[Rfam]
This 43-nucleotide RNA sequence from Escherichia coli belongs to the Rfam family "ES036 (CssrF) sRNA". The family has 4 seed sequences and 273 matches in Rfam 15.1. Lineage of the source: Bacteria > Pseudomonadati > Pseudomonadota > Enterobacterales > Escherichia coli O157:H7.
RNA sequence: AAAAUCAUGCAAAUUCAACAUAUUGCAUAAACCACGUAGGCCU
Numbered sequence: 001a002a003a004a005u006c007a008u009g010c011a012a013a014u015u016c017a018a019c020a021u022a023u024u025g026c027a028u029a030a031a032c033c034a035c036g037u038a039g040g041c042c043u
Base pairs, nucleotide, nucleotide: 005030008027009026010025011024012023

About the family: Differentially expressed under several chemical stress conditions. Also identified in Shigella as CssrF. Rfam classes the family as a small RNA.